About this RNA: A member of the RNA family "Small nucleolar RNA SNORD89" from Stegastes partitus, 111 nucleotides long. The organism belongs to Stegastes, within Eukaryota. Rfam's curators write: snoRNA HBII-289 belongs to the family of C/D snoRNAs. It is the human orthologue of the mouse MBII-289 and has no identified RNA target. Rfam 15.1 lists 642 matches to the family in 573 species.
[Rfam]
RNA sequence: GCUGGGAGAUGAUGUAAACAAAAGGCCGAAUUGUAGCGCCACCGCCAGGCAGUUUGUUCUGAGAGCGCAGCGCUGUGACAAACACCGACCGGAGCGUUAGCUGAUCCCAGA
Numbered sequence: 001g002c003u004g005g006g007a008g009a010u011g012a013u014g015u016a017a018a019c020a021a022a023a024g025g026c027c028g029a030a031u032u033g034u035a036g037c038g039c040c041a042c043c044g045c046c047a048g049g050c051a052g053u054u055u056g057u058u059c060u061g062a063g064a065g066c067g068c069a070g071c072g073c074u075g076u077g078a079c080a081a082a083c084a085c086c087g088a089c090c091g092g093a094g095c096g097u098u099a100g101c102u103g104a105u106c107c108c109a110g111a
Base pairs, nucleotide, nucleotide: 002110003109004108005107006106007105014101015100025034026033035098036097037096038095042092043091044089046087048086049085052073053072055069056068057067059065074084075083